[Rfam]
RNA sequence: GAGUCUAGCAUCUAUGCGAGUGUUUGGGUGGCUAAACCCAUACGCGAAAUGAAAGUGAAUGCAGGUGGGAACUUUUUGUGCACCACCGGCCGAUCCGGAAGUUUGUCAAUGGAAGGAUUUGAGCAAGAGCAUAGCUGUUGGGACCCGAAAGAUGGUGAACUAUGCCUGAAUAGGGCGAAGCCAGAGGAAACUCUGGUGGAGGCUCGUAGCGGUUCUGACGCGCAAAUCGAUCGUCAAAUUUGGGUAUAGGGGCGAAAGACUAAUCGAACCAUCUAGUAGCUGGUU
Numbered sequence: 001g002a003g004u005c006u007a008g009c010a011u012c013u014a015u016g017c018g019a020g021u022g023u024u025u026g027g028g029u030g031g032c033u034a035a036a037c038c039c040a041u042a043c044g045c046g047a048a049a050u051g052a053a054a055g056u057g058a059a060u061g062c063a064g065g066u067g068g069g070a071a072c073u074u075u076u077u078g079u080g081c082a083c084c085a086c087c088g089g090c091c092g093a094u095c096c097g098g099a100a101g102u103u104u105g106u107c108a109a110u111g112g113a114a115g116g117a118u119u120u121g122a123g124c125a126a127g128a129g130c131a132u133a134g135c136u137g138u139u140g141g142g143a144c145c146c147g148a149a150a151g152a153u154g155g156u157g158a159a160c161u162a163u164g165c166c167u168g169a170a171u172a173g174g175g176c177g178a179a180g181c182c183a184g185a186g187g188a189a190a191c192u193c194u195g196g197u198g199g200a201g202g203c204u205c206g207u208a209g210c211g212g213u214u215c216u217g218a219c220g221c222g223c224a225a226a227u228c229g230a231u232c233g234u235c236a237a238a239u240u241u242g243g244g245u246a247u248a249g250g251g252g253c254g255a256a257a258g259a260c261u262a263a264u265c266g267a268a269c270c271a272u273c274u275a276g277u278a279g280c281u282g283g284u285u
Stems, first nucleotide, its partner, number of pairs: 005141006012134006020045003025040005049056002064087005071079002089124002091121003094117003101110003144283002147280001151273006160249011171237001173205004180197007209234004214230002217228002251261002